Shown here is a 92-nucleotide RNA sequence from Cytobacillus dafuensis, a member of the family "c-di-GMP-I riboswitch aptamer". The match comes from Rfam's covariance-model search (72 bits). Rfam links the family to the GO term cyclic-di-GMP binding.
[Rfam]
RNA sequence: AAGUGAAAAAGGCAAAUCAUAGGAAACUAUGGGACGCAAAGCCAUGGGCCUGAACUACAUUAAUUAAAUGUAGAUGGCAGCCGGUUACCACA
Dot-bracket structure: ...........((...((((((....))))))...))..((((..(((((....(((((((.....)))))))..)))..))))))......
Numbered sequence: 001a002a003g004u005g006a007a008a009a010a011g012g013c014a015a016a017u018c019a020u021a022g023g024a025a026a027c028u029a030u031g032g033g034a035c036g037c038a039a040a041g042c043c044a045u046g047g048g049c050c051u052g053a054a055c056u057a058c059a060u061u062a063a064u065u066a067a068a069u070g071u072a073g074a075u076g077g078c079a080g081c082c083g084g085u086u087a088c089c090a091c092a
Stems, first nucleotide, its partner, number of pairs: 012037002017032006040086004046082002048078003055073007